mir-153 microRNA precursor family: a 73-nucleotide RNA sequence from Octodon degus. On this family, see Chen et al., Genes Dev 2005: "The developmental miRNA profiles of zebrafish as determined by small RNA cloning".
[Rfam]
RNA sequence: GCCAGUGUCAUUUUUGUCUUCUGCAGCUAAUAUUUUGCAUUCCAGUUGCAUAGUUACAGAAGUGCUCACUGGC
Numbered sequence: 001g002c003c004a005g006u007g008u009c010a011u012u013u014u015u016g017u018c019u020u021c022u023g024c025a026g027c028u029a030a031u032a033u034u035u036u037g038c039a040u041u042c043c044a045g046u047u048g049c050a051u052a053g054u055u056a057c058a059g060a061a062g063u064g065c066u067c068a069c070u071g072g073c
Stems, first nucleotide, its partner, number of pairs: 002072006009064009020053001022050007